[Rfam]
RNA: Small nucleolar RNA SNORA13
RNA sequence: UGCCUUUAUGUGUUGCCCAUCCAUUGCUCUCCACAAUGGAUGCGGUGUCAGAAAAGGCAUACAUCAAAUCUUGGUCCGGCCUUGGCAGGGUUCCCCAGCGGUGACCUUGUUCUAAGUUCUAUACCAAGAACAGAA
Numbered sequence: 001u002g003c004c005u006u007u008a009u010g011u012g013u014u015g016c017c018c019a020u021c022c023a024u025u026g027c028u029c030u031c032c033a034c035a036a037u038g039g040a041u042g043c044g045g046u047g048u049c050a051g052a053a054a055a056g057g058c059a060u061a062c063a064u065c066a067a068a069u070c071u072u073g074g075u076c077c078g079g080c081c082u083u084g085g086c087a088g089g090g091u092u093c094c095c096c097a098g099c100g101g102u103g104a105c106c107u108u109g110u111u112c113u114a115a116g117u118u119c120u121a122u123a124c125c126a127a128g129a130a131c132a133g134a135a
Base pairs, nucleotide, nucleotide: 002058003057004056005055006054007053011050012049014047015046016045017044018042019041020040021039022038023037024036025035070128071127072126073125078119079118084117088113089112090110091109